[Rfam]
Nucleotides: 211
Base pairs, nucleotide, nucleotide: 001133002132003131004130005129013122014121015120016119025111026110029108030107031106035051036050037049038048039047052093053092054091055090056089057088058087134149135148136147137146
Number, partner (000 for none) and nucleotide at each position: 001133g002132g003131a004130c005129a006000u007000a008000a009000a010000c011000g012000c013122g014121c015120a016119c017000g018000u019000a020000a021000u022000a023000a024000g025111c026110g027000g028000a029108u030107c031106g032000g033000a034000c035051c036050c037049g038048g039047g040000g041000g042000c043000g044000g045000u046000a047039c048038c049037c050036g051035g052093c053092g054091a055090c056089u057088c058087c059000a060000c061000c062000a063000a064000a065000u066000u067000c068000c069000c070000u071000u072000u073000a074000u075000u076000g077000g078000g079000g080000g081000g082000a083000g084000c085000g086000a087058g088057g089056g090055g091054u092053c093052g094000a095000a096000a097000c098000a099000g100000g101000a102000u103000c104000g105000a106031c107030g108029a109000a110026c111025g112000u113000c114000u115000a116000a117000a118000g119016g120015u121014g122013u123000u124000u125000g126000c127000u128000u129005u130004g131003u132002c133001u134149c135148g136147g137146u138000g139000a140000g141000g142000u143000a144000c145000c146137a147136c148135c149134g150000a151000u152000a153000u154000c155000g156000g157000u158000c159000c160000g161000u162000u163000a164000a165000g166000c167000a168000u169000a170000a171000u172000u173000g174000c175000c176000a177000a178000u179000a180000a181000c182000a183000a184000u185000c186000a187000u188000g189000c190000u191000c192000c193000g194000g195000u196000c197000g198000c199000u200000c201000u202000c203000g204000c205000u206000g207000c208000u209000u210000a211000a
Notes
permuted transfer-messenger RNA: a 211-nucleotide RNA sequence from Candidatus Rhodobacter oscarellae. The literature on the family includes a 1997 paper in RNA by Felden et al., "Probing the structure of the Escherichia coli 10Sa RNA (tmRNA)". Rfam's curators write: Bacterial tmRNA, also known as 10Sa RNA or SsrA, is named for its dual tRNA and mRNA-like properties. By type it is a non-coding RNA gene.